[Rfam]
RNA: Bacterial small signal recognition particle RNA
Organism: Planobispora rosea
RNA sequence: GGAGGACCCCUCGCGCGGCGUCAUCCUGUGAACCUCCCCAGGGCCGGAAGGCAGCAAGGAUAAGCGGGCUCUGGCGGGUGUGCGAGGGGUUCCUUCGUU
Numbered sequence: 001g002g003a004g005g006a007c008c009c010c011u012c013g014c015g016c017g018g019c020g021u022c023a024u025c026c027u028g029u030g031a032a033c034c035u036c037c038c039c040a041g042g043g044c045c046g047g048a049a050g051g052c053a054g055c056a057a058g059g060a061u062a063a064g065c066g067g068g069c070u071c072u073g074g075c076g077g078g079u080g081u082g083c084g085a086g087g088g089g090u091u092c093c094u095u096c097g098u099u
Base pairs, nucleotide, nucleotide: 004093005092006091008089010086011085012084013083014082015081016078019076020075021074022073023072025068026067027066028065029064035060036059037058043052044051045050